[Rfam]
RNA sequence: UAGUCUAUAAUAGAACAAUCUUAUUUAUACCUAGGAUAUGGCUGGGCGUUUCUACCUCGUACCGUAAAUGCGAGACAAUAAGGAAAUUCGAUUUUUUA
Numbered sequence: 001u002a003g004u005c006u007a008u009a010a011u012a013g014a015a016c017a018a019u020c021u022u023a024u025u026u027a028u029a030c031c032u033a034g035g036a037u038a039u040g041g042c043u044g045g046g047c048g049u050u051u052c053u054a055c056c057u058c059g060u061a062c063c064g065u066a067a068a069u070g071c072g073a074g075a076c077a078a079u080a081a082g083g084a085a086a087u088u089c090g091a092u093u094u095u096u097u098a
Stems, first nucleotide, its partner, number of pairs: 019083007030046005056074006
Dot-bracket structure: ..................(((((((....(((((.......))))).........((((((.......))))))..)))))))...............